[Rfam]
RNA sequence: GAGUUGGGAAAGCUGCAUUUGGCGGUCCGUUGGGGUCAAUCCCCACCCGGCUA
Numbered sequence: 001g002a003g004u005u006g007g008g009a010a011a012g013c014u015g016c017a018u019u020u021g022g023c024g025g026u027c028c029g030u031u032g033g034g035g036u037c038a039a040u041c042c043c044c045a046c047c048c049g050g051c052u053a
Stems, first nucleotide, its partner, number of pairs: 002052007012026005031045005
This 53-nucleotide RNA sequence belongs to the Rfam family "DUF3800-VI RNA". It is annotated as a cis-regulatory element. Rfam's curators put it in the seed alignment.